[Rfam]
RNA sequence: UUGCACGCUCUUUCCCGGGCUUCUCUGAGUCUCUACCUUUGAAGAAAAAAGCCCCAAAAGUCGUGCUAAAGCCAUGCCGUUUUACGUGUUGCAGUAUAGCCUUUACUUUUCCAACGGCUCUUCUGUGUCAAAUCAGCGGCUACAUCU
Numbered sequence: 001u002u003g004c005a006c007g008c009u010c011u012u013u014c015c016c017g018g019g020c021u022u023c024u025c026u027g028a029g030u031c032u033c034u035a036c037c038u039u040u041g042a043a044g045a046a047a048a049a050a051g052c053c054c055c056a057a058a059a060g061u062c063g064u065g066c067u068a069a070a071g072c073c074a075u076g077c078c079g080u081u082u083u084a085c086g087u088g089u090u091g092c093a094g095u096a097u098a099g100c101c102u103u104u105a106c107u108u109u110u111c112c113a114a115c116g117g118c119u120c121u122u123c124u125g126u127g128u129c130a131a132a133u134c135a136g137c138g139g140c141u142a143c144a145u146c147u
Stems, first nucleotide, its partner, number of pairs: 003066005010060002017054005022048001024045003076140006087130002090127005099118003
Source information:
Shown here is a 147-nucleotide RNA from Theobroma umbraticum, a member of the family "small nucleolar RNA snoR134". A search with the family's covariance model found it, with a score of 108 bits. The family has 5 seed sequences and 792 matches in Rfam 15.1. The source organism's lineage runs through Eukaryota, Magnoliopsida, Gunneridae, malvids and Theobroma. It is annotated as an H/ACA-box small nucleolar RNA.